[Rfam]
RNA sequence: AAAACUUAAGUACAAUUUCGUAGGUGUUUUUUGUAUGGUUCUUAACUAAAAAUACAAUUUUUUUAGAGAUAACAAACUUUGAGAGAAUUAUGGAUUUAAGAAAAUCACGGUGAAUUUAGUUAAGAACCAUAAGAAAAGUACCUAUGAAAUUGUACCUAAGUUUU
Numbered sequence: 001a002a003a004a005c006u007u008a009a010g011u012a013c014a015a016u017u018u019c020g021u022a023g024g025u026g027u028u029u030u031u032u033g034u035a036u037g038g039u040u041c042u043u044a045a046c047u048a049a050a051a052a053u054a055c056a057a058u059u060u061u062u063u064u065a066g067a068g069a070u071a072a073c074a075a076a077c078u079u080u081g082a083g084a085g086a087a088u089u090a091u092g093g094a095u096u097u098a099a100g101a102a103a104a105u106c107a108c109g110g111u112g113a114a115u116u117u118a119g120u121u122a123a124g125a126a127c128c129a130u131a132a133g134a135a136a137a138g139u140a141c142c143u144a145u146g147a148a149a150u151u152g153u154a155c156c157u158a159a160g161u162u163u164u
Stems, first nucleotide, its partner, number of pairs: 002163007010155004015150011027138006034131010045120006